[Rfam]
RNA sequence: AGGAGUGUGAGGAGUAAGUUGAAAGUACAAGAAGCACCUGGAGUGGAAACACGGUCACACGCCCAGGUGCUUUUUGCU
Numbered sequence: 001a002g003g004a005g006u007g008u009g010a011g012g013a014g015u016a017a018g019u020u021g022a023a024a025g026u027a028c029a030a031g032a033a034g035c036a037c038c039u040g041g042a043g044u045g046g047a048a049a050c051a052c053g054g055u056c057a058c059a060c061g062c063c064c065a066g067g068u069g070c071u072u073u074u075u076g077c078u
Stems, first nucleotide, its partner, number of pairs: 031073005038066004043060003
Notes: Rfam assigns this 78-nucleotide sequence from Calothrix sp. PCC 6303 to the family "Cyano-1 RNA". The family has 265 seed sequences and 283 matches in Rfam 15.1. The match comes from Rfam's covariance-model search (44 bits). Rfam classes the family as a small RNA. Lineage of the source: Bacteria > Cyanobacteriota > Cyanophyceae > Nostocales > Calothrix. The family's consensus secondary structure is taken from published work.